[Rfam]
RNA sequence: UGGCGUCCAACGUGGGGCCUGGGCACGAGGGAUGAACGUGAGGAACAGACGCAAAGAAAGGCCGGCGAUACAAGUGAGCAAAGCGUCCUUCAGCUGCCGGAACCUGCCACGUUGGAACCGAAGGUAAGUGAAAGCGUCUGAACAUGGAGCAAGAACUCAGCCAGCAUCAGAUUUAUGUGAAACAAUUAAAAGAGGCUUUAAAGGCACGAGGAGUAAAGGUUAAAGGUUAUGACUUGCUUAAAUUUUUUGAUUUCAUAAAGGACACCUGUCCUU
Numbered sequence: 001u002g003g004c005g006u007c008c009a010a011c012g013u014g015g016g017g018c019c020u021g022g023g024c025a026c027g028a029g030g031g032a033u034g035a036a037c038g039u040g041a042g043g044a045a046c047a048g049a050c051g052c053a054a055a056g057a058a059a060g061g062c063c064g065g066c067g068a069u070a071c072a073a074g075u076g077a078g079c080a081a082a083g084c085g086u087c088c089u090u091c092a093g094c095u096g097c098c099g100g101a102a103c104c105u106g107c108c109a110c111g112u113u114g115g116a117a118c119c120g121a122a123g124g125u126a127a128g129u130g131a132a133a134g135c136g137u138c139u140g141a142a143c144a145u146g147g148a149g150c151a152a153g154a155a156c157u158c159a160g161c162c163a164g165c166a167u168c169a170g171a172u173u174u175a176u177g178u179g180a181a182a183c184a185a186u187u188a189a190a191a192g193a194g195g196c197u198u199u200a201a202a203g204g205c206a207c208g209a210g211g212a213g214u215a216a217a218g219g220u221u222a223a224a225g226g227u228u229a230u231g232a233c234u235u236g237c238u239u240a241a242a243u244u245u246u247u248u249g250a251u252u253u254c255a256u257a258a259a260g261g262a263c264a265c266c267u268g269u270c271c272u273u
Base pairs, nucleotide, nucleotide: 006031007030008029012026013025014024037048039047083125084124086121087120090117091115095111096110099107134150135149137148138147139146140145157200159198160196161195162194207249208248209247210246211245212244213243214242217235218234219233220232221231222230258273259272260271261270262269263268

The record is a 273-nucleotide RNA from Prolemur simus, which matches "Mason-Pfizer monkey virus packaging signal" in Rfam.
The literature on the family includes a 2004 paper in Virus Res by Mustafa et al., "Mutational analysis of the predicted secondary RNA structure of the Mason-Pfizer monkey virus packaging signal".
By type it is a cis-regulatory element.
Lineage of the source: Eukaryota > Vertebrata > Teleostomi > Amniota > Prolemur.
Its family is annotated with viral genome packaging in the Gene Ontology.
The family's consensus secondary structure was predicted with PFOLD.